[Rfam]
RNA: Alphaproteobacterial ar14
Organism: Rhizobium sp. BK376
RNA sequence: AGAAUUCGGAGACGCACACUCCUCCUCCCAGUGCUCUCCGAUGGACUGGCAACACUCCUCCUCCCAGUUGCCGGUCACUGUAAAUGACGCCCACCGCACCUCCUCCCGCGGUGGGCGUUAUUU
Numbered sequence: 001a002g003a004a005u006u007c008g009g010a011g012a013c014g015c016a017c018a019c020u021c022c023u024c025c026u027c028c029c030a031g032u033g034c035u036c037u038c039c040g041a042u043g044g045a046c047u048g049g050c051a052a053c054a055c056u057c058c059u060c061c062u063c064c065c066a067g068u069u070g071c072c073g074g075u076c077a078c079u080g081u082a083a084a085u086g087a088c089g090c091c092c093a094c095c096g097c098a099c100c101u102c103c104u105c106c107c108g109c110g111g112u113g114g115g116c117g118u119u120a121u122u123u
Base pairs, nucleotide, nucleotide: 007040008039009038011036012035014034015033016032017031044076045075046074047073048072049071050070051069052068053067087118088117089116090115091114092113093112094111095110096109097108
Dot-bracket structure: ......(((.((.((((.............)))))).)))...((((((((((.............))))))))))..........(((((((((((..........))))))))))).....